[Rfam]
Overview
Rfam assigns this 106-nucleotide RNA sequence from Ancylobacter pratisalsi to the family "EcpR1". For this family Rfam cites "A genome-wide survey of sRNAs in the symbiotic nitrogen-fixing alpha-proteobacterium Sinorhizobium meliloti" (Schluter et al., BMC Genomics, 2010). About the family: Perviously named SmelC291, SmrC10, or Sra33. According to its overproduction phenotype it was renamed Elongated Cell Phenotype RNA1. Induced by stress,EcpR1 negatively regulates cell cycle master regulatory genes dnaA and gcrA at post-transcriptional level by base pairing between its strongly conserved GC-rich loop and the target mRNAs. Rfam links the family to the GO terms mRNA binding, regulation of translation in response to stress and negative regulation of cell cycle. The source organism's lineage runs through Bacteria, Pseudomonadati, Pseudomonadota, Hyphomicrobiales and Ancylobacter. Rfam classes the family as a small RNA. It scores 73 bits against the family's covariance model.
RNA sequence: CUGCCCUACGGAGUGCUCGGGUCCGCCGCAUCUCCUGGGUCCGUGGGGUUCAGUCGGCGGGUGGCGGCGUGGAUGGCCUCUCCGUGCUGCCGCCCGCCGAUACUUC
Numbered sequence: 001c002u003g004c005c006c007u008a009c010g011g012a013g014u015g016c017u018c019g020g021g022u023c024c025g026c027c028g029c030a031u032c033u034c035c036u037g038g039g040u041c042c043g044u045g046g047g048g049u050u051c052a053g054u055c056g057g058c059g060g061g062u063g064g065c066g067g068c069g070u071g072g073a074u075g076g077c078c079u080c081u082c083c084g085u086g087c088u089g090c091c092g093c094c095c096g097c098c099g100a101u102a103c104u105u106c
Stems, first nucleotide, its partner, number of pairs: 003049008016039006053101010